[Rfam]
RNA sequence: UGUAGGGACUUCUGUCGUAGGAGAGAUGUCGCCAAAUGCAUUGAUCUUAUUAUAUAGAAUGCAGAGGGCUUCAUCUCUCUUCGACUGAAGCCCCUCAGUUC
Numbered sequence: 001u002g003u004a005g006g007g008a009c010u011u012c013u014g015u016c017g018u019a020g021g022a023g024a025g026a027u028g029u030c031g032c033c034a035a036a037u038g039c040a041u042u043g044a045u046c047u048u049a050u051u052a053u054a055u056a057g058a059a060u061g062c063a064g065a066g067g068g069c070u071u072c073a074u075c076u077c078u079c080u081u082c083g084a085c086u087g088a089a090g091c092c093c094c095u096c097a098g099u100u101c
Base pairs, nucleotide, nucleotide: 005093006092007091009090010089011088012087014085015084016083017082019081020080021079023077024076025075026074027073028072

This 101-nucleotide sequence from Rosa chinensis belongs to the Rfam family "MIR5225 microRNA precursor family".
Its family is annotated with miRNA-mediated post-transcriptional gene silencing and RISC complex in the Gene Ontology.
Pairs were carried over by alignment from the consensus structure, which was predicted with RNAalifold.
Lineage of the source: Eukaryota > Magnoliopsida > rosids > Rosaceae > Rosa.